[Rfam]
RNA sequence: CCCGCGGCAAGACGGAAAGACCCCGUGAACCUUCACUACAGCUUUACACUGAACUUUGAACCUUUUUGUGUAGCAUAGGUGGGAGGCUUUGAAGUCUGGGCGCUAGCUCAGAUGGAGCCAACGUUGAAAUACCACCCUGAAAUGUUCGGAGUUCUAACCUUGCCCCGUAAUCCGGGGUGGGGACAGUGUAUGGUGGGUAGUUUGACUGGGGCGGUCUCCUCCCAAAGAGUAACGGAGGAGUGCAAAGGUACGCUCAGCGCGGUCGGUCAUCGCGCUCUAGAGUGCAAAGGCAUAAGCGUGCUUAACUGCGAGACGGACAUGUCGAGCAGGUACGAAAGUAGGUCUUAGUGAUCCGGUGGUUCUGUAUGGAAGGGCCAUCGCUCAACGGAUAAAAGGUACUCCGGGGAUAACAGGCUUAUUCCUCCCAAGAGUCCACAUCGACGGAGGAGUUUGGCACCUCGAUGUCGGCUCAUCACAUCCUGGGGCUGUAGCAGGUCCCAAGGGUAUGGCUGUUCGCCAUUUAAAGUGGUACGCGAGCUGGGUUCAGAACGUCGUGAGACAGUUCGGUCCCUAUCUGCCGUGGGCGUU
Number, nucleotide and partner (000 for none) at each position: 001c584002c583003c582004g581005c580006g579007g578008c577009a000010a576011g575012a574013c000014g571015g570016a000017a000018a000019g000020a000021c000022c405023c404024c403025g402026u000027g401028a400029a397030c396031c395032u394033u393034c000035a201036c200037u199038a198039c000040a000041g000042c193043u192044u000045u190046a189047c188048a187049c000050u000051g154052a153053a152054c151055u150056u149057u148058g147059a146060a145061c144062c000063u142064u141065u140066u139067u000068g137069u000070g000071u000072a000073g000074c000075a000076u000077a000078g136079g135080u134081g133082g132083g000084a000085g119086g118087c117088u000089u000090u000091g000092a000093a000094g113095u112096c111097u110098g109099g108100g107101c106102g000103c000104u000105a000106g101107c100108u099109c098110a097111g096112a095113u094114g000115g000116a000117g087118c086119c085120a000121a000122c000123g000124u000125u000126g000127a000128a000129a000130u000131a000132c082133c081134a080135c079136c078137c068138u000139g066140a065141a064142a063143u000144g061145u060146u059147c058148g057149g056150a055151g054152u053153u052154c051155u000156a000157a000158c181159c180160u179161u000162g178163c177164c176165c175166c174167g173168u000169a000170a000171u000172c000173c167174g166175g165176g164177g163178u162179g160180g159181g158182g000183a000184c000185a000186g000187u048188g047189u046190a045191u000192g043193g042194u000195g000196g000197g000198u038199a037200g036201u035202u000203u000204g216205a215206c214207u213208g000209g000210g000211g000212c000213g207214g206215u205216c204217u239218c238219c237220u236221c235222c234223c000224a000225a000226a000227g000228a000229g000230u000231a000232a000233c000234g222235g221236a220237g219238g218239a217240g386241u000242g343243c342244a000245a000246a000247g000248g301249u300250a299251c298252g297253c296254u281255c280256a000257g275258c274259g273260c272261g271262g270263u000264c000265g000266g000267u000268c000269a000270u262271c261272g260273c259274g258275c257276u000277c000278u000279a000280g255281a254282g291283u290284g000285c000286a000287a000288a000289g000290g283291c282292a000293u000294a000295a000296g253297c252298g251299u250300g249301c248302u000303u000304a000305a000306c329307u328308g327309c326310g000311a000312g323313a322314c321315g000316g000317a000318c000319a000320u000321g314322u313323c312324g000325a000326g309327c308328a307329g306330g000331u340332a339333c338334g000335a000336a000337a000338g333339u332340a331341g000342g243343u242344c000345u000346u000347a000348g000349u000350g000351a000352u000353c000354c380355g379356g378357u377358g376359g375360u374361u000362c373363u372364g000365u000366a000367u000368g000369g000370a000371a000372g363373g362374g360375c359376c358377a357378u356379c355380g354381c000382u000383c000384a000385a000386c240387g000388g000389a000390u000391a000392a000393a033394a032395g031396g030397u029398a000399c000400u028401c027402c025403g024404g023405g022406g000407a000408u000409a000410a000411c000412a000413g000414g455415c454416u453417u000418a452419u449420u448421c447422c446423u445424c444425c443426c000427a000428a000429g439430a438431g000432u000433c000434c000435a000436c000437a000438u430439c429440g000441a000442c000443g425444g424445a423446g422447g421448a420449g419450u000451u000452u418453g416454g415455c414456a000457c000458c000459u000460c000461g000462a000463u000464g000465u000466c541467g539468g538469c537470u536471c533472a530473u529474c528475a527476c526477a000478u000479c504480c503481u000482g499483g498484g497485g496486c495487u494488g000489u000490a000491g000492c000493a000494g487495g486496u485497c484498c483499c482500a000501a000502g000503g480504g479505u000506a520507u519508g518509g517510c516511u000512g000513u000514u000515c000516g510517c509518c508519a507520u506521u000522u000523a000524a000525a000526g476527u475528g474529g473530u472531a000532c000533g471534c000535g000536a470537g469538c468539u467540g000541g466542g000543u000544u000545c000546a000547g565548a564549a563550c562551g560552u559553c558554g000555u000556g000557a000558g553559a552560c551561a000562g550563u549564u548565c547566g000567g000568u000569c000570c015571c014572u000573a000574u012575c011576u010577g008578c007579c006580g005581u004582g003583g002584g001585c000586g000587u000588u000
The family of this 588-nucleotide part of an RNA from Povalibacter uvarum is "Bacterial large subunit ribosomal RNA". Pairs were carried over by alignment from the consensus structure, which is taken from published work.